[Rfam]
RNA: Clostridiales-1 RNA
Organism: Butyrivibrio proteoclasticus
RNA sequence: CAGUAAUAAUGGAUUCAAGGUAUCAAAUACGCAUGCUUGCAUGCAAGGAUUUGAUACUUUGAAGACUAAACGGACAUGAGGAAAAAAGGCAUUUUACAAAGUAAAAUGACGAUUUCCGAAUGUACGCCGGAUUGCGAGAACGAAGUGUAGCAAUCCGAGUUACUG
Numbered sequence: 001c002a003g004u005a006a007u008a009a010u011g012g013a014u015u016c017a018a019g020g021u022a023u024c025a026a027a028u029a030c031g032c033a034u035g036c037u038u039g040c041a042u043g044c045a046a047g048g049a050u051u052u053g054a055u056a057c058u059u060u061g062a063a064g065a066c067u068a069a070a071c072g073g074a075c076a077u078g079a080g081g082a083a084a085a086a087a088g089g090c091a092u093u094u095u096a097c098a099a100a101g102u103a104a105a106a107u108g109a110c111g112a113u114u115u116c117c118g119a120a121u122g123u124a125c126g127c128c129g130g131a132u133u134g135c136g137a138g139a140a141c142g143a144a145g146u147g148u149a150g151c152a153a154u155c156c157g158a159g160u161u162a163c164u165g
Stems, first nucleotide, its partner, number of pairs: 001165007011066001014063001017060012030047001031044005071126002074123004080117004088110001090108008129156007140146002